The record is a 64-nucleotide RNA sequence from Corynebacterium sputi, which matches "L31-Corynebacteriaceae ribosomal protein leader" in Rfam. The family's RNA type in Rfam is cis-regulatory leader. Pairs were carried over by alignment from the consensus structure, which is taken from published work. For this family Rfam cites "Discovery of 20 novel ribosomal leader candidates in bacteria and archaea" (Eckert and Weinberg, BMC Microbiol, 2020).
RNA sequence: ACUCAGGCACGGUCCCGUUGAGCAUGCUCGGUGGGGUAUCGACCUGAAGUUCAAUCCUGAGGGA
Numbered sequence: 001a002c003u004c005a006g007g008c009a010c011g012g013u014c015c016c017g018u019u020g021a022g023c024a025u026g027c028u029c030g031g032u033g034g035g036g037u038a039u040c041g042a043c044c045u046g047a048a049g050u051u052c053a054a055u056c057c058u059g060a061g062g063g064a
Base pairs, nucleotide, nucleotide: 001050002049003048004046005045006044007043014036015035016034019031020029021028
Notes
Rfam's curators put it in the seed alignment. Taxonomically the source falls in Corynebacterium sputi (Bacteria, Mycobacteriales, Corynebacteriaceae, Corynebacterium).